[Rfam]
The record is a 74-nucleotide RNA sequence from Myotis lucifugus, which matches "mir-9229 microRNA precursor family" in Rfam. It scores 72 bits against the family's covariance model.
RNA sequence: GAGACACCCUUAUGGAGGAGGACUUGCUUCAGUGGGGCUUUGGUGCUCACAGAGUCUUCCCCUUGAGUGUCAUU
Number, nucleotide and partner (000 for none) at each position: 001g000002a074003g073004a000005c000006a070007c069008c000009c067010u066011u065012a064013u000014g062015g061016a000017g059018g058019a057020g000021g056022a055023c054024u000025u000026g000027c000028u000029u053030c052031a000032g050033u049034g048035g047036g046037g044038c043039u000040u000041u000042g000043g038044u037045g000046c036047u035048c034049a033050c032051a000052g030053a029054g023055u022056c021057u019058u018059c017060c000061c015062c014063u000064u012065g011066a010067g009068u000069g007070u006071c000072a000073u003074u002